[Rfam]
RNA sequence: CCCCGCGUGCUGCCUCACGACUAACGAAAGCACUCUCUCAGCAAAUAAGCCGAAAUAGUAUUUUCGUUAGCCGCGCAAUGGUGCACCGGAAGAGCCCAAAAUCAAUCUGUUAUGAUACUGCUAUUUGUUACUUAAUCAUAGGUCAGGUCUAGAAAAAAGGGGCCUGUUGGCCCCUUUUC
Dot-bracket structure: (..(.((.((.......((.((((((((((..............................))))))))))...)).......))..)))..).....((................................)).........................((((((....)))))).....